[Rfam]
RNA sequence: UGCGAUACCUAAUAAAGGGGUAGCUCCCCACCCAAGAGCUAUUUUACCAUAUUUUGAAUUC
Numbered sequence: 001u002g003c004g005a006u007a008c009c010u011a012a013u014a015a016a017g018g019g020g021u022a023g024c025u026c027c028c029c030a031c032c033c034a035a036g037a038g039c040u041a042u043u044u045u046a047c048c049a050u051a052u053u054u055u056g057a058a059u060u061c
Base pairs, nucleotide, nucleotide: 017045018044019043020042021041022040023039024038025037026036
Plastid-psbN 5UTR RNA: a 61-nucleotide RNA sequence from Trema orientale. For this family Rfam cites "Retrograde signaling in plants: A critical review focusing on the GUN pathway and beyond" (Richter et al., Plant Commun, 2023). Rfam classes the family as a cis-regulatory element. Plastid psbN is a non-coding RNA (ncRNA) recognised in plastids. It was reported as a conserved 11 stem-loop in the prime untranslated region (5UTR) of psbN genes. It has been reported that the motif is retained in a subset of mature transcripts in barley, which can suggests a possible role in transcript alternative 5 prime processing.